[Rfam]
RNA sequence: UAUGCGGGCCGGACGGUCGCGGGAGGGCGUGCCCUCGUGAGGAAAGUCCGGGCUUCUUGAGGCAGGAUGCCGGCUAACGGCCGGGCGGGGAAACCCGACGGAUUAGUGCUGAAGAAACUUAAACUCCCACUGGCGCUUGGCGCUUCGGCGCCUCGCGUUAAGAGAAAAGCUGAGAAGGUGCGGUAAGAGCGCACCAGCACGUUGGUAACAGCGUGGCUUAGGUAAACCCCAUCCGAAGCAAGGGCGAAUAGGCAUGCGAUACGGCUGAGCCUCUCCGUGCAUGCGGGUAGCCUGCUUGAGACGUGCGGCGACGCGCGUCCUAGAUAAAUGGCCGUCUUAGAAGACAGAACCCGGCUUACAGGCCCGCUACGGC
Numbered sequence: 001u002a003u004g005c006g007g008g009c010c011g012g013a014c015g016g017u018c019g020c021g022g023g024a025g026g027g028c029g030u031g032c033c034c035u036c037g038u039g040a041g042g043a044a045a046g047u048c049c050g051g052g053c054u055u056c057u058u059g060a061g062g063c064a065g066g067a068u069g070c071c072g073g074c075u076a077a078c079g080g081c082c083g084g085g086c087g088g089g090g091a092a093a094c095c096c097g098a099c100g101g102a103u104u105a106g107u108g109c110u111g112a113a114g115a116a117a118c119u120u121a122a123a124c125u126c127c128c129a130c131u132g133g134c135g136c137u138u139g140g141c142g143c144u145u146c147g148g149c150g151c152c153u154c155g156c157g158u159u160a161a162g163a164g165a166a167a168a169g170c171u172g173a174g175a176a177g178g179u180g181c182g183g184u185a186a187g188a189g190c191g192c193a194c195c196a197g198c199a200c201g202u203u204g205g206u207a208a209c210a211g212c213g214u215g216g217c218u219u220a221g222g223u224a225a226a227c228c229c230c231a232u233c234c235g236a237a238g239c240a241a242g243g244g245c246g247a248a249u250a251g252g253c254a255u256g257c258g259a260u261a262c263g264g265c266u267g268a269g270c271c272u273c274u275c276c277g278u279g280c281a282u283g284c285g286g287g288u289a290g291c292c293u294g295c296u297u298g299a300g301a302c303g304u305g306c307g308g309c310g311a312c313g314c315g316c317g318u319c320c321u322a323g324a325u326a327a328a329u330g331g332c333c334g335u336c337u338u339a340g341a342a343g344a345c346a347g348a349a350c351c352c353g354g355c356u357u358a359c360a361g362g363c364c365c366g367c368u369a370c371g372g373c
Stems, first nucleotide, its partner, number of pairs: 001369002004367007011359001012336007020039002023036005044357003048354005053238004060272004065234005070084005085099001086097004100229002106227002108223003124169002127164001131160006177195006196218001198215007242293004252284006264276001267273001300319008

The record is a 373-nucleotide sequence from Slackia equolifaciens, which matches "Bacterial RNase P class A" in Rfam.
It is annotated as a ribozyme.
A reference for the family is Frank and Pace (1998), "Ribonuclease P: unity and diversity in a tRNA processing ribozyme", Annu Rev Biochem.